Annotation:
Potassium channel RNA editing signal: a 114-nucleotide RNA sequence from Opisthorchis viverrini. Rfam 15.1 lists 14,095 matches to the family in 1,000 species. NCBI's taxonomy places the organism under Eukaryota, Opisthokonta, Rhabditophora, Neodermata, Opisthorchis. The base pairs follow the family's consensus structure, which is taken from published work.

[Rfam]
RNA sequence: UUCAGCUACGGUGACAUCGUUCCAAUCACAAUUAUUGGAAAAAUAUUUGGCGGCAUCUGCUCACUGUCUGGCGUGCUUGUGAUUGCCUUACCCGUCCCUGUCAUUGUGUCGCAC
Numbered sequence: 001u002u003c004a005g006c007u008a009c010g011g012u013g014a015c016a017u018c019g020u021u022c023c024a025a026u027c028a029c030a031a032u033u034a035u036u037g038g039a040a041a042a043a044u045a046u047u048u049g050g051c052g053g054c055a056u057c058u059g060c061u062c063a064c065u066g067u068c069u070g071g072c073g074u075g076c077u078u079g080u081g082a083u084u085g086c087c088u089u090a091c092c093c094g095u096c097c098c099u100g101u102c103a104u105u106g107u108g109u110c111g112c113a114c
Base pairs, nucleotide, nucleotide: 002113005110007108008107009106010105011104013102014101015100016099019096021094037077038076040074050062

Notes: A search with the family's covariance model found it, with a score of 74 bits.